[Rfam]
Shown here is a 35-nucleotide RNA, a member of the family "DUF805b RNA". Rfam classes the family as a cis-regulatory element.

RNA sequence: CUGGAAUAUGCUGAAAAUCCUAAAAAGAGUAGGCA
Numbered sequence: 001c002u003g004g005a006a007u008a009u010g011c012u013g014a015a016a017a018u019c020c021u022a023a024a025a026a027g028a029g030u031a032g033g034c035a
Base pairs, nucleotide, nucleotide: 003020004019005018010034011033012032
Dot-bracket structure: ..(((....[[[.....)))...........]]].
The family's consensus secondary structure is taken from published work.